[Rfam]
RNA: c-di-AMP riboswitch aptamer (ydaO/yuaA leader)
RNA sequence: CCGCACCACCCGUGGUCUGUGAGCCGGGGAACCACACUUCCCCCUGGGGUGAAUCCCCUGUGAGGCGCACUGCGCGAGCGGUGCGUGGAGCAGGGGUAGGACACGUCGUGCCGAACCCGUCAGCUCACCCGGUAGG
Numbered sequence: 001c002c003g004c005a006c007c008a009c010c011c012g013u014g015g016u017c018u019g020u021g022a023g024c025c026g027g028g029g030a031a032c033c034a035c036a037c038u039u040c041c042c043c044c045u046g047g048g049g050u051g052a053a054u055c056c057c058c059u060g061u062g063a064g065g066c067g068c069a070c071u072g073c074g075c076g077a078g079c080g081g082u083g084c085g086u087g088g089a090g091c092a093g094g095g096g097u098a099g100g101a102c103a104c105g106u107c108g109u110g111c112c113g114a115a116c117c118c119g120u121c122a123g124c125u126c127a128c129c130c131g132g133u134a135g136g
Base pairs, nucleotide, nucleotide: 001136002135007021008020023133024132025131026130027129028128033046034045047118048117049116055096056095057094058093059092060091061090099112100111102110